[Rfam]
RNA sequence: AUUCCUCGCGGGAUGUUCAGGUCCGCCGCAUCUCCUGAGUCCCACGGGGUCAGGCCGGUUCAGGAAACGGGGGAGUUGCCUCCUCGCCCCUUCCUGGGCCGGCCGCUUU
Number, nucleotide and partner (000 for none) at each position: 001a000002u000003u000004c049005c048006u047007c046008g045009c000010g043011g000012g000013a000014u000015g000016u039017u038018c037019a036020g035021g034022u000023c000024c000025g000026c000027c000028g000029c000030a000031u000032c000033u000034c021035c020036u019037g018038a017039g016040u000041c000042c000043c010044a000045c008046g007047g006048g005049g004050u000051c000052a000053g104054g103055c102056c101057g100058g099059u098060u097061c096062a095063g094064g000065a000066a000067a000068c000069g000070g000071g000072g000073g000074a000075g000076u000077u000078g000079c000080c000081u000082c000083c000084u000085c000086g000087c000088c000089c000090c000091u000092u000093c000094c063095u062096g061097g060098g059099c058100c057101g056102g055103c054104c053105g000106c000107u000108u000109u000